Rfam assigns this 100-nucleotide RNA from Dreissena polymorpha to the family "Small nucleolar RNA SNORD16".
On this family, see Huttenhofer et al., EMBO J 2001: "RNomics: an experimental approach that identifies 201 candidates for novel, small, non-messenger RNAs in mouse".
Lineage of the source: Eukaryota > Opisthokonta > Metazoa > Mollusca > Dreissena.
It scores 66 bits against the family's covariance model.
Pairs were carried over by alignment from the consensus structure, which was predicted with PFOLD.
RNA sequence: AGCAAUGAUGUUUGUAAUUUGCGUCAGAUAGCAAGUAAGGUGACGGUUGCCUGCUGUCAUAUGCCUUCUUGUUUAACUGAUGAUGAAUAUGUUCUGAGCU
Numbered sequence: 001a002g003c004a005a006u007g008a009u010g011u012u013u014g015u016a017a018u019u020u021g022c023g024u025c026a027g028a029u030a031g032c033a034a035g036u037a038a039g040g041u042g043a044c045g046g047u048u049g050c051c052u053g054c055u056g057u058c059a060u061a062u063g064c065c066u067u068c069u070u071g072u073u074u075a076a077c078u079g080a081u082g083a084u085g086a087a088u089a090u091g092u093u094c095u096g097a098g099c100u
Base pairs, nucleotide, nucleotide: 001100002099003098022082023081024080025079031072032071033070034069035068040064041063042058043057044056045055046054